Potassium channel RNA editing signal: a 114-nucleotide RNA. Rfam's curators put it in the seed alignment. Gene Ontology term of the family: adenosine to inosine editing. Rfam classes the family as a cis-regulatory element.
[Rfam]
RNA sequence: UUAGGCUAUGGGGAUAUGUACCCCCAAACAUGGUCAGGGAUGUUGGUGGGGGCCUUGUGUGCCCUGGCCGGAGUGCUGACAAUAGCCAUGCCUGUGCCUGUCAUUGUCAACAAU
Numbered sequence: 001u002u003a004g005g006c007u008a009u010g011g012g013g014a015u016a017u018g019u020a021c022c023c024c025c026a027a028a029c030a031u032g033g034u035c036a037g038g039g040a041u042g043u044u045g046g047u048g049g050g051g052g053c054c055u056u057g058u059g060u061g062c063c064c065u066g067g068c069c070g071g072a073g074u075g076c077u078g079a080c081a082a083u084a085g086c087c088a089u090g091c092c093u094g095u096g097c098c099u100g101u102c103a104u105u106g107u108c109a110a111c112a113a114u
Stems, first nucleotide, its partner, number of pairs: 002113001004111001008107004013102004018097004037077002040074001049063002